This 89-nucleotide RNA sequence from Flavobacterium hercynium belongs to the Rfam family "Flavo-1 RNA".

RNA sequence: CCCUAGCCCUGAUAGAAGCGAUAUCCUUUUGUGGCAUACGCGUAAAGAUGGGUAUGCCACAAAAGAUAAAGCGGAUAGCAGGAUUAGCU
Numbered sequence: 001c002c003c004u005a006g007c008c009c010u011g012a013u014a015g016a017a018g019c020g021a022u023a024u025c026c027u028u029u030u031g032u033g034g035c036a037u038a039c040g041c042g043u044a045a046a047g048a049u050g051g052g053u054a055u056g057c058c059a060c061a062a063a064a065g066a067u068a069a070a071g072c073g074g075a076u077a078g079c080a081g082g083a084u085u086a087g088c089u
Stems, first nucleotide, its partner, number of pairs: 009081003013077002018072002023067003029062011
A search with the family's covariance model found it, with a score of 69 bits. The family's RNA type in Rfam is small RNA.